[Rfam]
The record is a 72-nucleotide RNA from Sodalis ligni, which matches "PyrD leader" in Rfam. It is annotated as a cis-regulatory leader. The literature on the family includes a 1994 paper in Nucleic Acids Res by Sorensen, "Conformational heterogeneity in the Salmonella typhimurium pyrC and pyrD leader mRNAs produced in vivo".
RNA sequence: AUUUCUUUUCCGCAGGGGAUGCCCGAUAAUACCGCCCCGGUUGCAACCGGGAUAUCAGGAGACCCUAUGUUU
Numbered sequence: 001a002u003u004u005c006u007u008u009u010c011c012g013c014a015g016g017g018g019a020u021g022c023c024c025g026a027u028a029a030u031a032c033c034g035c036c037c038c039g040g041u042u043g044c045a046a047c048c049g050g051g052a053u054a055u056c057a058g059g060a061g062a063c064c065c066u067a068u069g070u071u072u
Base pairs, nucleotide, nucleotide: 036051037050038049039048040047041046